RNA sequence: UGGUUGUAGCCAAAUCAAAUGGUUGAGAAGUUUACUGGCCCGCCAUUGUGAGAUUUCCCAAAGUCUCUAUCAAUGGAUCUGCUUACUGAGCUUCUCAUAAUU
Dot-bracket structure: ........................((((((((....(((..(.(((((......................)))).).)..))).....))))))))......